Rfam assigns this 76-nucleotide RNA sequence from Porphyromonas gingivalis to the family "Bacteroidetes FopS (family of paralogous sRNAs)".
Gene Ontology term of the family: sRNA-mediated gene silencing.
Rfam describes the family as follows. The RNA-binding protein RbpB and BTncRNA_FopS sRNA are involved in the post-transcription regulation of polysaccharide utilisation loci (PUL). FopS sRNAs function as post-transcriptional repressors by binding to the vicinity of the start codon of the first mRNA of target PUL polycistrons, typically corresponding to the cognate SusC homolog, impeding translation of the respective glycan transporter.

RNA sequence: GUGUUUUUCAUGGUAUUAGAUUUUAAGGUUAAUAAGGAAGUAAGGGCUGUCGGGAGAUAGCCCUUAUUUUUUUGAA
Numbered sequence: 001g002u003g004u005u006u007u008u009c010a011u012g013g014u015a016u017u018a019g020a021u022u023u024u025a026a027g028g029u030u031a032a033u034a035a036g037g038a039a040g041u042a043a044g045g046g047c048u049g050u051c052g053g054g055a056g057a058u059a060g061c062c063c064u065u066a067u068u069u070u071u072u073u074g075a076a
Base pairs, nucleotide, nucleotide: 045062046061047060048059049058050057051056

Rfam classes the family as a small RNA. Pairs were carried over by alignment from the consensus structure, which is taken from published work. On this family, see Ruttiger et al., Nat Commun 2025: "The global RNA-binding protein RbpB is a regulator of polysaccharide utilization in Bacteroides thetaiotaomicron".